A member of the RNA family "Small nucleolar RNA Z155" from Arabis nemorensis, 82 nucleotides long.
Pairs were carried over by alignment from the consensus structure.
For this family Rfam cites "The high diversity of snoRNAs in plants: identification and comparative study of 120 snoRNA genes from Oryza sativa" (Chen et al., Nucleic Acids Res, 2003).
The organism belongs to Arabis, within Eukaryota.
RNA sequence: CAAUGGAAUGAUGAUUAAACUUUAUCGGAAAUAUUAAUUUAUUGUGCCGACCAAAACUCAGACUACAAUUAUCUGAUCAUUU
Numbered sequence: 001c002a003a004u005g006g007a008a009u010g011a012u013g014a015u016u017a018a019a020c021u022u023u024a025u026c027g028g029a030a031a032u033a034u035u036a037a038u039u040u041a042u043u044g045u046g047c048c049g050a051c052c053a054a055a056a057c058u059c060a061g062a063c064u065a066c067a068a069u070u071a072u073c074u075g076a077u078c079a080u081u082u
Stems, first nucleotide, its partner, number of pairs: 002081005